Annotation
The family of this 80-nucleotide sequence from Pongo pygmaeus is "mir-1910 microRNA precursor family".

[Rfam]
RNA sequence: UGUCCCCUCAGCCAGUCCUGUGCCCACCACCUUCGUGCUGUCCUUGGAGGGAGGCAGAAGCAGGAUGACAAUGAGGGCAA
Numbered sequence: 001u002g003u004c005c006c007c008u009c010a011g012c013c014a015g016u017c018c019u020g021u022g023c024c025c026a027c028c029a030c031c032u033u034c035g036u037g038c039u040g041u042c043c044u045u046g047g048a049g050g051g052a053g054g055c056a057g058a059a060g061c062a063g064g065a066u067g068a069c070a071a072u073g074a075g076g077g078c079a080a
Base pairs, nucleotide, nucleotide: 005077006076007075008074009073010072015066016065017064018063019062020061021060027054028053030051031050032049033048034047